[Rfam]
This 274-nucleotide RNA from Saimiri boliviensis belongs to the Rfam family "Mason-Pfizer monkey virus packaging signal".
RNA sequence: UGGCGCCCAACGUAGGGCUCGAAGUAAGAGGGACACAGUGAGGGACAUCGUCGAAGCCGGUCGGAUUGAAGGAAGAAAUCCAGAGGAGGAGUCACUGCGGGAACCUGCUGCAGCCUUGCUCUCUGGUAAGUGGACGACGAUAUUAUGGGUUAGGAAAUUAGUAAGCAUCAGUUUUUUGUAGAAGAACUCAGCAUAGCAUUAAAGGCGUGAGGAGUAAAGGUGAAAGUAAACUGGUUAAUUAAAUAUUUUUAUUAUAUUAAGGACAUUUGUCCCU
Numbered sequence: 001u002g003g004c005g006c007c008c009a010a011c012g013u014a015g016g017g018c019u020c021g022a023a024g025u026a027a028g029a030g031g032g033a034c035a036c037a038g039u040g041a042g043g044g045a046c047a048u049c050g051u052c053g054a055a056g057c058c059g060g061u062c063g064g065a066u067u068g069a070a071g072g073a074a075g076a077a078a079u080c081c082a083g084a085g086g087a088g089g090a091g092u093c094a095c096u097g098c099g100g101g102a103a104c105c106u107g108c109u110g111c112a113g114c115c116u117u118g119c120u121c122u123c124u125g126g127u128a129a130g131u132g133g134a135c136g137a138c139g140a141u142a143u144u145a146u147g148g149g150u151u152a153g154g155a156a157a158u159u160a161g162u163a164a165g166c167a168u169c170a171g172u173u174u175u176u177u178g179u180a181g182a183a184g185a186a187c188u189c190a191g192c193a194u195a196g197c198a199u200u201a202a203a204g205g206c207g208u209g210a211g212g213a214g215u216a217a218a219g220g221u222g223a224a225a226g227u228a229a230a231c232u233g234g235u236u237a238a239u240u241a242a243a244u245a246u247u248u249u250u251a252u253u254a255u256a257u258u259a260a261g262g263a264c265a266u267u268u269g270u271c272c273c274u
Stems, first nucleotide, its partner, number of pairs: 006032003013026002037048001038046002080126002085123002091119001096112005134151001138147002158201001160199001161197002209249004214244002218236002221233002259274001261272004
On this family, see Mustafa et al., Virus Res 2004: "Mutational analysis of the predicted secondary RNA structure of the Mason-Pfizer monkey virus packaging signal".
The family's consensus secondary structure was predicted with PFOLD.
Gene Ontology term of the family: viral genome packaging.